[Rfam]
RNA sequence: CGAUUAGCGCUUGUUGGUGCACCCAGGCUUAAGUGAUCCUGACGGCCCAUUGAAUGUGCUGGGUGCUGGUCAGAGUGGGUUGUCUUGACGGGAUAAAGGUUGGGUCCACCCAGGUAACCCAGUUCAUGCCGCCGAGACGACCAAGGUGUAAUGGUUGCUUUGUCCCUCGGGAUCUGCUUCCUAAAGACUCUGGCAGAAAAGCGUUAAUCGACCCGUCUUGAAACACGG
Numbered sequence: 001c002g003a004u005u006a007g008c009g010c011u012u013g014u015u016g017g018u019g020c021a022c023c024c025a026g027g028c029u030u031a032a033g034u035g036a037u038c039c040u041g042a043c044g045g046c047c048c049a050u051u052g053a054a055u056g057u058g059c060u061g062g063g064u065g066c067u068g069g070u071c072a073g074a075g076u077g078g079g080u081u082g083u084c085u086u087g088a089c090g091g092g093a094u095a096a097a098g099g100u101u102g103g104g105u106c107c108a109c110c111c112a113g114g115u116a117a118c119c120c121a122g123u124u125c126a127u128g129c130c131g132c133c134g135a136g137a138c139g140a141c142c143a144a145g146g147u148g149u150a151a152u153g154g155u156u157g158c159u160u161u162g163u164c165c166c167u168c169g170g171g172a173u174c175u176g177c178u179u180c181c182u183a184a185a186g187a188c189u190c191u192g193g194c195a196g197a198a199a200a201g202c203g204u205u206a207a208u209c210g211a212c213c214c215g216u217c218u219u220g221a222a223a224c225a226c227g228g
Stems, first nucleotide, its partner, number of pairs: 001210012017066001020065007070193007213228004